[Rfam]
Notes:
Shown here is a 75-nucleotide RNA sequence from Lepisosteus oculatus, a member of the family "Small nucleolar RNA SNORD19". Its Rfam clan is "SNORD19 clan". On this family, see Huttenhofer et al., EMBO J 2001: "RNomics: an experimental approach that identifies 201 candidates for novel, small, non-messenger RNAs in mouse". It scores 35 bits against the family's covariance model. The family has 22 seed sequences and 1,431 matches in Rfam 15.1. The organism belongs to Lepisosteus, within Eukaryota.

RNA sequence: GAGAGGUGAGGAUAAUCCAGCAUGUCUUGAGAUAACCCUAAUCACAUAAGAUCCAACUCUGAUCUCACUACAUAC
Numbered sequence: 001g002a003g004a005g006g007u008g009a010g011g012a013u014a015a016u017c018c019a020g021c022a023u024g025u026c027u028u029g030a031g032a033u034a035a036c037c038c039u040a041a042u043c044a045c046a047u048a049a050g051a052u053c054c055a056a057c058u059c060u061g062a063u064c065u066c067a068c069u070a071c072a073u074a075c
Stems, first nucleotide, its partner, number of pairs: 001066004